[Rfam]
The record is a 44-nucleotide sequence from a Gammaproteobacteria bacterium, which matches "Guanidine-II riboswitch aptamer (mini-ykkC)" in Rfam.
Nucleotides: 044
Base pairs, nucleotide, nucleotide: 001016002015003014004013005012006011031044032043033042034041035040
Number, partner (000 for none) and nucleotide at each position: 001016c002015a003014g004013u005012g006011g007000a008000c009000g010000a011006c012005c013004a014003c015002u016001g017000u018000c019000g020000u021000a022000c023000c024000u025000a026000u027000a028000c029000u030000c031044a032043c033042g034041g035040g036000a037000c038000g039000a040035c041034c042033c043032g044031u
About the family: Simpler in structure and has fewer highly conserved nucleotide positions than the ykkC-yxkD leader. It scores 34 bits against the family's covariance model. The organism belongs to Gammaproteobacteria, within Bacteria.